[Rfam]
Nucleotides: 180
Stems, first nucleotide, its partner, number of pairs: 001180002004177005012169011025156001027154001029152012042140005074109001
Number, partner (000 for none) and nucleotide at each position: 001180a002179a003000a004177c005176c006175g007174c008173c009000c010000c011000c012169u013168a014167g015166g016165u017164u018163u019162u020161g021160c022159a023000a024000c025156u026000a027154u028000a029152g030151c031150a032149g033148u034147u035146u036145u037144g038143g039142c040141c041000u042140c043139c044138c045137a046136a047000g048000g049000c050000c051000a052000a053000u054000u055000u056000u057000u058000g059000g060000u061000a062000a063000u064000u065000u066000u067000u068000u069000u070000u071000u072000u073000u074109a075000a076000a077000a078000a079000u080000a081000a082000c083000a084000c085000g086000u087000g088000a089000c090000a091000c092000c093000u094000a095000a096000c097000u098000u099000a100000g101000g102000u103000g104000c105000c106000a107000c108000a109074u110000c111000a112000g113000c114000g115000u116000a117000g118000a119000c120000c121000g122000g123000g124000u125000c126000a127000a128000a129000a130000u131000u132000g133000g134000c135000c136046u137045u138044g139043g140042g141040g142039g143038c144037c145036a146035a147034a148033a149032c150031u151030g152029c153000c154027a155000c156025a157000u158000a159022u160021g161020c162019a163018a164017a165016a166015c167014u168013u169012a170000g171000g172000g173008g174007g175006c176005g177004g178000u179002u180001u
Shown here is a 180-nucleotide RNA sequence from Medicago truncatula, a member of the family "MIR2619 microRNA precursor family". A search with the family's covariance model found it, with a score of 114 bits. Gene Ontology terms of the family: RISC complex and miRNA-mediated post-transcriptional gene silencing.